[Rfam]
RNA sequence: ACCUUAUCUAGAGAAACUGAGGGACUGGCCCGAUGAAGUUUCAGCAACCGGCGUGUGUUCAUUUGCUCGCAAGGUGCUAAUUCCUGCAGACUUAUGUGUCUGAAAGAUAAGGA
Numbered sequence: 001a002c003c004u005u006a007u008c009u010a011g012a013g014a015a016a017c018u019g020a021g022g023g024a025c026u027g028g029c030c031c032g033a034u035g036a037a038g039u040u041u042c043a044g045c046a047a048c049c050g051g052c053g054u055g056u057g058u059u060c061a062u063u064u065g066c067u068c069g070c071a072a073g074g075u076g077c078u079a080a081u082u083c084c085u086g087c088a089g090a091c092u093u094a095u096g097u098g099u100c101u102g103a104a105a106g107a108u109a110a111g112g113a
Stems, first nucleotide, its partner, number of pairs: 002112007013042005021031003025086001027084002043078004048074002051070003082105001087102005

This 113-nucleotide sequence from Clostridium fungisolvens belongs to the Rfam family "SAM riboswitch aptamer (S box leader)". A search with the family's covariance model found it, with a score of 90 bits. The organism belongs to Clostridium, within Bacteria. The family's consensus secondary structure is taken from published work.